[Rfam]
This 150-nucleotide RNA sequence from Ovis aries belongs to the Rfam family "Small nucleolar RNA SNORA57". The family's consensus secondary structure was predicted with PFOLD. U99 belongs to the H/ACA class of snoRNAs which are thought to guide the sites of modification of uridines to pseudouridines, the target for this family is unknown. A search with the family's covariance model found it, with a score of 53 bits. A reference for the family is Vitali et al. (2003), "Identification of 13 novel human modification guide RNAs", Nucleic Acids Res. Lineage of the source: Eukaryota > Bilateria > Deuterostomia > Theria > Ovis.
RNA sequence: CCUCUGUGAAUCAGGAUGGCAUUAAACAACUUUCCCUUCAGUCCUGGUCAUGUGCAGAGGUCCAGAAAGGGCUGUGGCCCUCUCUGUGUCAUUCCUUUGUUACUAGUGGCUUCCAGUCCAUGAGUACUAACCUUGAGCACCCAGACAUCA
Numbered sequence: 001c002c003u004c005u006g007u008g009a010a011u012c013a014g015g016a017u018g019g020c021a022u023u024a025a026a027c028a029a030c031u032u033u034c035c036c037u038u039c040a041g042u043c044c045u046g047g048u049c050a051u052g053u054g055c056a057g058a059g060g061u062c063c064a065g066a067a068a069g070g071g072c073u074g075u076g077g078c079c080c081u082c083u084c085u086g087u088g089u090c091a092u093u094c095c096u097u098u099g100u101u102a103c104u105a106g107u108g109g110c111u112u113c114c115a116g117u118c119c120a121u122g123a124g125u126a127c128u129a130a131c132c133u134u135g136a137g138c139a140c141c142c143a144g145a146c147a148u149c150a
Stems, first nucleotide, its partner, number of pairs: 001060005011047006086140004103124002106121004